About this RNA: PyrR binding site: a 125-nucleotide RNA from Rummeliibacillus sp. TYF005. Rfam classes the family as a cis-regulatory element. The match comes from Rfam's covariance-model search (57 bits). The literature on the family includes a 2001 paper in Nucleic Acids Res by Bonner et al., "Molecular recognition of pyr mRNA by the Bacillus subtilis attenuation regulatory protein PyrR". The base pairs follow the family's consensus structure, which is taken from published work.
RNA sequence: ACAACCUUUUAAAAGUUGCCCAGAGAGGCACAGAAGGGUGAAUUGAUACGAUAGGUGAAAAGUAAUAGUCUAUCAUGUCAUAUCCUUCCUGAGCCUCCUUGAUAUUCCAAGGAGGCUUUUAUUUA
Numbered sequence: 001a002c003a004a005c006c007u008u009u010u011a012a013a014a015g016u017u018g019c020c021c022a023g024a025g026a027g028g029c030a031c032a033g034a035a036g037g038g039u040g041a042a043u044u045g046a047u048a049c050g051a052u053a054g055g056u057g058a059a060a061a062g063u064a065a066u067a068g069u070c071u072a073u074c075a076u077g078u079c080a081u082a083u084c085c086u087u088c089c090u091g092a093g094c095c096u097c098c099u100u101g102a103u104a105u106u107c108c109a110a111g112g113a114g115g116c117u118u119u120u121a122u123u124u125a
Stems, first nucleotide, its partner, number of pairs: 003039001005037005017030004045079004050074007058066001091118011